[Rfam]
RNA sequence: UUGGCAGUGAUGAUUGGCGCAGGGGUAUGGACCUCAGCUGGAUAAUGGGAGCUGAGUGUAAAUGUUCCUUCUCUGUUCAAUCGGCAUGUGGCCGGCUGGCUGAGAGGCAUUUGCAUGAGAAAACCGCCAAGGUCUGAGCCAC
Numbered sequence: 001u002u003g004g005c006a007g008u009g010a011u012g013a014u015u016g017g018c019g020c021a022g023g024g025g026u027a028u029g030g031a032c033c034u035c036a037g038c039u040g041g042a043u044a045a046u047g048g049g050a051g052c053u054g055a056g057u058g059u060a061a062a063u064g065u066u067c068c069u070u071c072u073c074u075g076u077u078c079a080a081u082c083g084g085c086a087u088g089u090g091g092c093c094g095g096c097u098g099g100c101u102g103a104g105a106g107g108c109a110u111u112u113g114c115a116u117g118a119g120a121a122a123a124c125c126g127c128c129a130a131g132g133u134c135u136g137a138g139c140c141a142c
Stems, first nucleotide, its partner, number of pairs: 002141004
The record is a 142-nucleotide RNA sequence from Acipenser ruthenus, which matches "Small nucleolar RNA SNORD94" in Rfam. The organism belongs to Acipenser, within Eukaryota. The family's RNA type in Rfam is C/D-box small nucleolar RNA. Pairs were carried over by alignment from the consensus structure, which was predicted with RNAalifold.